[Rfam]
RNA sequence: CGAGACAAUGUCUCAUGGAUGUGGCUUUUUAAAAAAGCUGAACAAAAGG
Numbered sequence: 001c002g003a004g005a006c007a008a009u010g011u012c013u014c015a016u017g018g019a020u021g022u023g024g025c026u027u028u029u030u031a032a033a034a035a036a037g038c039u040g041a042a043c044a045a046a047a048g049g
Stems, first nucleotide, its partner, number of pairs: 002014004016045001018043001023039005

Source information:
The record is a 49-nucleotide sequence, which matches "eL15-Euryarchaeota ribosomal protein leader" in Rfam. The family's consensus secondary structure is taken from published work.